The record is a 59-nucleotide RNA from Sodalis glossinidius, which matches "Pseudomonas sRNA P26" in Rfam. Rfam classes the family as a non-coding RNA gene. The sequence is in the family's curated seed alignment. The base pairs follow the family's consensus structure, which was predicted with RNAalifold.

RNA sequence: ACCUUCCAGGUUGCAGCCUGAAUUAGGCUGAUGGCUGGUGGCUUUUUGGUCACCAGCCU
Numbered sequence: 001a002c003c004u005u006c007c008a009g010g011u012u013g014c015a016g017c018c019u020g021a022a023u024u025a026g027g028c029u030g031a032u033g034g035c036u037g038g039u040g041g042c043u044u045u046u047u048g049g050u051c052a053c054c055a056g057c058c059u
Stems, first nucleotide, its partner, number of pairs: 014030005033058010